[Rfam]
RNA sequence: UGCAAAUGCACUCUGUGUCACAUUAAAACUAGCUUCGUGUGAUGACAAUUUGUUAGUUUGCCAGAUCAAGGAGAUGCGUCUUAUCCAUGUGGCUGAGUUCUUACCAAUUUAUUCACAUUGAAAACGCCCCUAACAUGA
Numbered sequence: 001u002g003c004a005a006a007u008g009c010a011c012u013c014u015g016u017g018u019c020a021c022a023u024u025a026a027a028a029c030u031a032g033c034u035u036c037g038u039g040u041g042a043u044g045a046c047a048a049u050u051u052g053u054u055a056g057u058u059u060g061c062c063a064g065a066u067c068a069a070g071g072a073g074a075u076g077c078g079u080c081u082u083a084u085c086c087a088u089g090u091g092g093c094u095g096a097g098u099u100c101u102u103a104c105c106a107a108u109u110u111a112u113u114c115a116c117a118u119u120g121a122a123a124a125c126g127c128c129c130c131u132a133a134c135a136u137g138a
Stems, first nucleotide, its partner, number of pairs: 002061006010053002014047003017043007067137002070131002073129001077126002084121002087118006094111001096109002